[Rfam]
RNA sequence: CAAGAGUGGGGAUGGUGACCUGGUUGGACUAGAGUCUCUGAGUUUCUCUGAGGAUCUUUGAAACCAUCUGAGCCACUCCUA
Numbered sequence: 001c002a003a004g005a006g007u008g009g010g011g012a013u014g015g016u017g018a019c020c021u022g023g024u025u026g027g028a029c030u031a032g033a034g035u036c037u038c039u040g041a042g043u044u045u046c047u048c049u050g051a052g053g054a055u056c057u058u059u060g061a062a063a064c065c066a067u068c069u070g071a072g073c074c075a076c077u078c079c080u081a
Stems, first nucleotide, its partner, number of pairs: 003080002006077001007075003020070001022068003026064001031057003035053004040048003
RNA: Small nucleolar RNA ZL8
Organism: Fukomys damarensis